[Rfam]
RNA sequence: CGUUGACGUCACGACCGGCGCAGAUGGAAUGAACCAUCAGGGAGUCCCGUCGAGGUCCAUCGAACGCCUGGGUGGAUCUC
Numbered sequence: 001c002g003u004u005g006a007c008g009u010c011a012c013g014a015c016c017g018g019c020g021c022a023g024a025u026g027g028a029a030u031g032a033a034c035c036a037u038c039a040g041g042g043a044g045u046c047c048c049g050u051c052g053a054g055g056u057c058c059a060u061c062g063a064a065c066g067c068c069u070g071g072g073u074g075g076a077u078c079u080c
Stems, first nucleotide, its partner, number of pairs: 003053006011045002015041002017068004024037004057075005
The family of this 80-nucleotide RNA sequence from Microlunatus elymi is "ZMP/ZTP riboswitch aptamer (pfl RNA motif)". It scores 45 bits against the family's covariance model.